RNA: Bacillaceae-1 RNA
Organism: Lederbergia galactosidilytica
RNA sequence: GAAUAAGGAUCAAAGGCUAAAUACACGCCGUCCUAGCGCAACGCCUUUGUGACCCACAUCCUGUGGG
Dot-bracket structure: ..........(((((((........(((.......)))....)))))))...(((((.....)))))